[Rfam]
RNA sequence: CCAUACAGCACUGUACCCAGAGUGUGUCCCCAGACAUUGCACCUGGCACUGUUAGGCUGGAAUGGAAGUGUUUU
Numbered sequence: 001c002c003a004u005a006c007a008g009c010a011c012u013g014u015a016c017c018c019a020g021a022g023u024g025u026g027u028c029c030c031c032a033g034a035c036a037u038u039g040c041a042c043c044u045g046g047c048a049c050u051g052u053u054a055g056g057c058u059g060g061a062a063u064g065g066a067a068g069u070g071u072u073u074u
Stems, first nucleotide, its partner, number of pairs: 005052004017046004022035002025032002